[Rfam]
RNA sequence: CCACGUCCCGACGCACUCCCCCCCGGCGCCGGGACCUUCCCAGAGCCGGGCUUCGGCGCCCCACCCCCCGGGUGCCGAGGCCCGGCUCCACG
Numbered sequence: 001c002c003a004c005g006u007c008c009c010g011a012c013g014c015a016c017u018c019c020c021c022c023c024c025g026g027c028g029c030c031g032g033g034a035c036c037u038u039c040c041c042a043g044a045g046c047c048g049g050g051c052u053u054c055g056g057c058g059c060c061c062c063a064c065c066c067c068c069c070g071g072g073u074g075c076c077g078a079g080g081c082c083c084g085g086c087u088c089c090a091c092g
Base pairs, nucleotide, nucleotide: 005035006034007033008032009031010030012028013027014026043088044087045086046085047084048083049082050081051080052079054077055076056075057074058073059072060071061070